[Rfam]
RNA: Bacillaceae-1 RNA
Organism: Lentibacillus salicampi
RNA sequence: CAGAAUGGUUCAAAGGCUAAAAUUGCGACGUCCUGUCGCAACGCCUUUGUGACCAACGUCCUCUUGG
Numbered sequence: 001c002a003g004a005a006u007g008g009u010u011c012a013a014a015g016g017c018u019a020a021a022a023u024u025g026c027g028a029c030g031u032c033c034u035g036u037c038g039c040a041a042c043g044c045c046u047u048u049g050u051g052a053c054c055a056a057c058g059u060c061c062u063c064u065u066g067g
Stems, first nucleotide, its partner, number of pairs: 011049007025039005053067004